[Rfam]
RNA sequence: ACCCCGGCCCUUUUCAGGGCCACCCACUUCCUCUAGAAAGAGCUAU
Numbered sequence: 001a002c003c004c005c006g007g008c009c010c011u012u013u014u015c016a017g018g019g020c021c022a023c024c025c026a027c028u029u030c031c032u033c034u035a036g037a038a039a040g041a042g043c044u045a046u
Stems, first nucleotide, its partner, number of pairs: 006021006